A member of the RNA family "Small nucleolar RNA SNORD56", 68 nucleotides long.
Gene Ontology terms of the family: RNA processing and nucleolus.
The literature on the family includes a 2002 paper in Mol Cell Biol by Galardi et al., "Purified box C/D snoRNPs are able to reproduce site-specific 2'-O-methylation of target RNA in vitro".
By type it is a C/D-box small nucleolar RNA.
RNA sequence: CCGCAGUGACAGCAAUAUUUUUCAUCCACAGUUCACCUCAUGAAUGUUGUCACUUUGGGUCUGAGUGA
Dot-bracket structure: .(((...((...............))......................................))).
Rfam 15.1 lists 796 matches to the family in 432 species.